[Rfam]
RNA sequence: CACUUCGGUCGCAGGGGCGGUCUUUCCCAAGGACCACCGAGGUGAAAUGACCCCACCAAGCCCCACCCCUCCCGCCCGCAGCGCAAACUCACUCCCGCGAGUGAAUAUGCCAACUUGAGUGGAUUUGGGGCGGGUUGCGUGCCCUACGCUCAGCGCAGCAUCACCAACACCCACAGCAGACAUGCGACGGCCCCCGCCGGGAGUGCAAUCCCAAUGCGAGGGCCUGACCACCGAGGAAGAAGAGAGCUUCCCG
Dot-bracket structure: ......(((......((((.....................................................))))............((((((....))))))..............((((...........................))).)..................................(((((.(((.((((......))))...))).))))).....)))..(((((.......)))))..
Streptomyces sRNA 4677: a 253-nucleotide sequence from Streptomyces sp. 3214.6. Pairs were carried over by alignment from the consensus structure. Rfam describes the family as follows. Located in the intergenic region between anti-sigma factor SCO4677 gene and a putative regulatory protein gene SCO4676. scr4677 expression requires the SCO4677 activity and scr4677 sRNA itself seem to affect the levels of the SCO4676-associated transcripts. The organism belongs to Streptomyces, within Bacteria. A search with the family's covariance model found it, with a score of 193 bits. By type it is a small RNA. A reference for the family is Hindra et al. (2014), "Complex intra-operonic dynamics mediated by a small RNA in Streptomyces coelicolor", PLoS One. Rfam 15.1 lists 563 matches to the family in 285 species.